[Rfam]
RNA sequence: AAGCCAGUCAUGAAUCUACUAACUUGAAUGUGUUUCUACAGAAACUCUUAAAAAGCUGGCAAUAGUAAGGCCAUGUUAUGAGCCUUAAGGACAUUGAAGUCCUUAACUGCCCUGAAAAUGACUAUAACA
Dot-bracket structure: ..(((((.......(((......................))).............))))).........(.((...........((((.(((......))).))))............)).).......

Notes:
Rfam assigns this 129-nucleotide RNA from Carlito syrichta to the family "Small nucleolar RNA SNORA33". The family has 28 seed sequences and 1,176 matches in Rfam 15.1. From the family's description: ACA33 is a member of the H/ACA class of snoRNA that guide the sites of modification of uridines to pseudouridines. Pairs were carried over by alignment from the consensus structure, which was predicted with PFOLD. Its family is annotated with nucleolus and RNA processing in the Gene Ontology. A search with the family's covariance model found it, with a score of 102 bits.